This 109-nucleotide sequence from Alteribacter lacisalsi belongs to the Rfam family "SAM riboswitch aptamer (S box leader)". The family's consensus secondary structure is taken from published work. Taxonomically the source falls in Alteribacter (Bacteria, Bacillati, Bacilli, Bacillaceae).
RNA sequence: CUUUUAUCAAGAGAGGCGGAGGGACUGGACCGAUGAUGCCCGGCAACCAGCAGCGUUAAGCUGCAAGGUGCUGCUUCCUGCAAAGCCGCCGUGCUUUGGGAGAUGAGAG
Numbered sequence: 001c002u003u004u005u006a007u008c009a010a011g012a013g014a015g016g017c018g019g020a021g022g023g024a025c026u027g028g029a030c031c032g033a034u035g036a037u038g039c040c041c042g043g044c045a046a047c048c049a050g051c052a053g054c055g056u057u058a059a060g061c062u063g064c065a066a067g068g069u070g071c072u073g074c075u076u077c078c079u080g081c082a083a084a085g086c087c088g089c090c091g092u093g094c095u096u097u098g099g100g101a102g103a104u105g106a107g108a109g
Stems, first nucleotide, its partner, number of pairs: 001109008013041001015040003021031002025080001027078002042072004047068002050064004076101001081098006